[Rfam]
RNA sequence: GAGACACGCUUAUGGGGCAAGAGUUGCUUCAAUGGGGCUUUGGUGCUCACUGAGUUUGUCCCCUGAGUGUGUCUCU
Numbered sequence: 001g002a003g004a005c006a007c008g009c010u011u012a013u014g015g016g017g018c019a020a021g022a023g024u025u026g027c028u029u030c031a032a033u034g035g036g037g038c039u040u041u042g043g044u045g046c047u048c049a050c051u052g053a054g055u056u057u058g059u060c061c062c063c064u065g066a067g068u069g070u071g072u073c074u075c076u
Stems, first nucleotide, its partner, number of pairs: 001075007009067004014062006021056002029053003033049004037044002
Rfam assigns this 76-nucleotide RNA sequence from Pipistrellus kuhlii to the family "mir-9229 microRNA precursor family". The organism belongs to Pipistrellus, within Eukaryota. The match comes from Rfam's covariance-model search (82 bits). Rfam 15.1 lists 27,225 matches to the family in 9 species.